[Rfam]
RNA: Molybdenum/Tungsten riboswitch aptamer (Moco RNA motif)
RNA sequence: AUGCGAAUGUAACUCCGAGCUAUCUCACCUAAAUCUACGACAAGGUGUUUUAGCCGUGAAUUAGGCAAUGGUGUCAAAUUCGCCAGGGUUGUAAGAGAAAUCGAGCUGCCUCCCGCAAGUACCACAAUUUUUGUGGCACUUCACUUUGGAAAGGUGUUAAACAAUAUGUUAG
Numbered sequence: 001a002u003g004c005g006a007a008u009g010u011a012a013c014u015c016c017g018a019g020c021u022a023u024c025u026c027a028c029c030u031a032a033a034u035c036u037a038c039g040a041c042a043a044g045g046u047g048u049u050u051u052a053g054c055c056g057u058g059a060a061u062u063a064g065g066c067a068a069u070g071g072u073g074u075c076a077a078a079u080u081c082g083c084c085a086g087g088g089u090u091g092u093a094a095g096a097g098a099a100a101u102c103g104a105g106c107u108g109c110c111u112c113c114c115g116c117a118a119g120u121a122c123c124a125c126a127a128u129u130u131u132u133g134u135g136g137c138a139c140u141u142c143a144c145u146u147u148g149g150a151a152a153g154g155u156g157u158u159a160a161a162c163a164a165u166a167u168g169u170u171a172g
Stems, first nucleotide, its partner, number of pairs: 011158003015154002019054004026047004034040002056083007086111004091106002095102002112149002